[Rfam]
RNA sequence: CAAACGGUCCUUUUCAGGACCACCCUUUACUUCCAAAAGAGAAAUU
Numbered sequence: 001c002a003a004a005c006g007g008u009c010c011u012u013u014u015c016a017g018g019a020c021c022a023c024c025c026u027u028u029a030c031u032u033c034c035a036a037a038a039g040a041g042a043a044a045u046u
Stems, first nucleotide, its partner, number of pairs: 006021006
RNA: Histone 3' UTR stem-loop